[Rfam]
RNA sequence: UGUUUGUGAGAACCCUUAAAAUCAAGUAAUGUAAUGAUUCAAAGGGUUCUCGACGAU
Numbered sequence: 001u002g003u004u005u006g007u008g009a010g011a012a013c014c015c016u017u018a019a020a021a022u023c024a025a026g027u028a029a030u031g032u033a034a035u036g037a038u039u040c041a042a043a044g045g046g047u048u049c050u051c052g053a054c055g056a057u
Stems, first nucleotide, its partner, number of pairs: 007052011020039005
Plastid-ccsA-ndhD-2 3UTR RNA: a 57-nucleotide RNA from Astragalus mongholicus. The family's consensus secondary structure was predicted with LocARNA. By type it is a cis-regulatory element. For this family Rfam cites "Retrograde signaling in plants: A critical review focusing on the GUN pathway and beyond" (Richter et al., Plant Commun, 2023). Rfam's curators write: Plastid ccsA-ndhD-2 is a non-coding RNA (ncRNA) recognised in plastids. The sequence is in the family's curated seed alignment.